[Rfam]
RNA sequence: GUUAGCCUUUGGGGCAAGGUGAAAAAGAGUCAAUCUCUUUUAAUUCCUGACCGGCGGUAUAGCCCGCGAGCCGUUAUCACGGUUGAUCUGGUUUGAUUCCAGAGCCGACAGUAUAGUCUGGAUGGUAAAAGGCGAAA
Dot-bracket structure: ..(.((((((......(((..........................))).[[((((((....[[))))..(((........)))...(((((.......)))))]])).(((....]]))).......)))))).)..
FMN riboswitch aptamer (RFN element): a 137-nucleotide RNA from Sporomusa acidovorans.
The source organism's lineage runs through Bacteria, Bacillati, Negativicutes, Selenomonadales and Sporomusa acidovorans.
The base pairs follow the family's consensus structure, which is taken from published work.